[Rfam]
Nucleotides: 116
Base pairs, nucleotide, nucleotide: 016032017031018030019029020028077116078115079114080113081112088111089110091108092107093106095104097102
Number, partner (000 for none) and nucleotide at each position: 001000g002000g003000c004000g005000u006000a007000u008000u009000u010000c011000g012000c013000c014000c015000a016032g017031g018030c019029g020028g021000a022000g023000c024000u025000c026000g027000a028020c029019c030018g031017c032016c033000g034000c035000u036000u037000c038000a039000a040000g041000c042000c043000a044000u045000g046000a047000c048000g049000g050000g051000c052000u053000u054000c055000g056000u057000g058000g059000c060000c061000g062000a063000c064000a065000g066000c067000g068000c069000c070000a071000c072000g073000c074000c075000u076000a077116c078115g079114g080113a081112g082000u083000c084000g085000a086000g087000c088111c089110g090000a091108u092107c093106u094000g095104c096000c097102g098000g099000g100000u101000g102097c103000u104095g105000g106093a107092g108091a109000u110089c111088g112081c113080u114079c115078c116077g
This 116-nucleotide sequence from Luteimonas sp. FCS-9 belongs to the Rfam family "ALIL pseudoknot". A reference for the family is Mazauric et al. (2008), "Apical loop-internal loop RNA pseudoknots: a new type of stimulator of -1 translational frameshifting in bacteria", J Biol Chem. It is annotated as a cis-regulatory element. The match comes from Rfam's covariance-model search (98 bits). The base pairs follow the family's consensus structure, which is taken from published work.